[Rfam]
Rfam assigns this 154-nucleotide RNA from Camelus bactrianus to the family "Small nucleolar RNA SNORA79". About the family: ACA65 (SNORA79) is a member of the H/ACA class of snoRNAs that guide the sites of modification of uridines to pseudouridines. It is annotated as an H/ACA-box small nucleolar RNA. The literature on the family includes a 2006 paper in RNA by Schattner et al., "A computational screen for mammalian pseudouridylation guide H/ACA RNAs".
RNA sequence: UGACGGCCGUCCCUCUCACUGCUUGGGUGGAGCCUUAGGUCGUGGGGUUUCAGUAAACAUCAUAUAUCCAACCGGACUGGUCUUCACUCAGGGCACCGUGGGCAUGGGCUGGCUGUCCGUUAGUGCCUUCUGAUUUCUGCGGAGUCAAACAACU
Numbered sequence: 001u002g003a004c005g006g007c008c009g010u011c012c013c014u015c016u017c018a019c020u021g022c023u024u025g026g027g028u029g030g031a032g033c034c035u036u037a038g039g040u041c042g043u044g045g046g047g048u049u050u051c052a053g054u055a056a057a058c059a060u061c062a063u064a065u066a067u068c069c070a071a072c073c074g075g076a077c078u079g080g081u082c083u084u085c086a087c088u089c090a091g092g093g094c095a096c097c098g099u100g101g102g103c104a105u106g107g108g109c110u111g112g113c114u115g116u117c118c119g120u121u122a123g124u125g126c127c128u129u130c131u132g133a134u135u136u137c138u139g140c141g142g143a144g145u146c147a148a149a150c151a152a153c154u
Base pairs, nucleotide, nucleotide: 001062002061003060005058008053014047015046016045017044018043021040022039023038024037025036075146076145077144078143088133089132090131091130092129093126094125095124096123101118102117104116105115106114
A search with the family's covariance model found it, with a score of 59 bits. NCBI's taxonomy places the organism under Eukaryota, Gnathostomata, Teleostomi, Tetrapoda, Camelus.